[Rfam]
This 157-nucleotide RNA sequence from Paenibacillus catalpae belongs to the Rfam family "c-di-AMP riboswitch aptamer (ydaO/yuaA leader)". Lineage of the source: Bacteria > Bacillati > Bacillota > Bacilli > Paenibacillus. Rfam describes the family as follows. This family represents a conserved RNA structure found upstream of the ydaO and yuaA genes in Bacillus subtilis and related genes in other bacteria. The match comes from Rfam's covariance-model search (69 bits).

RNA sequence: UAAAUAACACUGCCAAAUUCCGUGUACUGGAAACGGGGGAACCACCUCUGGGUGAAUUGACUUCGACGUCCGAAUGAUUCUAUCGGCGCCCGAGAAGUCAUAGGGAUCCUUCAACCGAACCCCACAGCUAACCUCGUCGGCAUUGGAAGGAGCUUUA
Numbered sequence: 001u002a003a004a005u006a007a008c009a010c011u012g013c014c015a016a017a018u019u020c021c022g023u024g025u026a027c028u029g030g031a032a033a034c035g036g037g038g039g040a041a042c043c044a045c046c047u048c049u050g051g052g053u054g055a056a057u058u059g060a061c062u063u064c065g066a067c068g069u070c071c072g073a074a075u076g077a078u079u080c081u082a083u084c085g086g087c088g089c090c091c092g093a094g095a096a097g098u099c100a101u102a103g104g105g106a107u108c109c110u111u112c113a114a115c116c117g118a119a120c121c122c123c124a125c126a127g128c129u130a131a132c133c134u135c136g137u138c139g140g141c142a143u144u145g146g147a148a149g150g151a152g153c154u155u156u157a
Stems, first nucleotide, its partner, number of pairs: 011142004018032003033137006050122003058100007103116002